[Rfam]
RNA: Selenocysteine insertion sequence 1
Organism: Gopherus evgoodei
RNA sequence: UAGCUAUUAUGAAAGUGCUGUACAAAAUCCUUCAGGAAGUACAGUGCUUGAUGUUUACACCGA
Numbered sequence: 001u002a003g004c005u006a007u008u009a010u011g012a013a014a015g016u017g018c019u020g021u022a023c024a025a026a027a028u029c030c031u032u033c034a035g036g037a038a039g040u041a042c043a044g045u046g047c048u049u050g051a052u053g054u055u056u057a058c059a060c061c062g063a
Stems, first nucleotide, its partner, number of pairs: 001063001003061001005059001014048010029036002